[Rfam]
RNA sequence: UACGGAUGAGUAGCGCCUGGACUCGCUGGUGGAGGGAGCGAGUCGACGAGGUGGAGGCUCGAUCGAAAGAUUCGGCGGAUGGCCUCCCGGCUGGCACGGUCGUCACGGUGAGAGCAAAACCGGCGGGCGACUGCCGGGACAAAGGCUCACCGAGGUGCACCC
Numbered sequence: 001u002a003c004g005g006a007u008g009a010g011u012a013g014c015g016c017c018u019g020g021a022c023u024c025g026c027u028g029g030u031g032g033a034g035g036g037a038g039c040g041a042g043u044c045g046a047c048g049a050g051g052u053g054g055a056g057g058c059u060c061g062a063u064c065g066a067a068a069g070a071u072u073c074g075g076c077g078g079a080u081g082g083c084c085u086c087c088c089g090g091c092u093g094g095c096a097c098g099g100u101c102g103u104c105a106c107g108g109u110g111a112g113a114g115c116a117a118a119a120c121c122g123g124c125g126g127g128c129g130a131c132u133g134c135c136g137g138g139a140c141a142a143a144g145g146c147u148c149a150c151c152g153a154g155g156u157g158c159a160c161c162c
Stems, first nucleotide, its partner, number of pairs: 020044008053087005063075004088102006106152007120137007
RNA: glmS glucosamine-6-phosphate activated ribozyme aptamer
Organism: bacterium HR28